[Rfam]
RNA: mir-124 microRNA precursor family
Organism: Enterobius vermicularis
RNA sequence: UGCGUCUCGCGUUCAUCGGUGACUUUAGUGAUAUGGAAAGUCAACUAAGGCACGCGGUGAAUGCCAAUCGCU
Numbered sequence: 001u002g003c004g005u006c007u008c009g010c011g012u013u014c015a016u017c018g019g020u021g022a023c024u025u026u027a028g029u030g031a032u033a034u035g036g037a038a039a040g041u042c043a044a045c046u047a048a049g050g051c052a053c054g055c056g057g058u059g060a061a062u063g064c065c066a067a068u069c070g071c072u
Stems, first nucleotide, its partner, number of pairs: 003070002009064008019055003023050007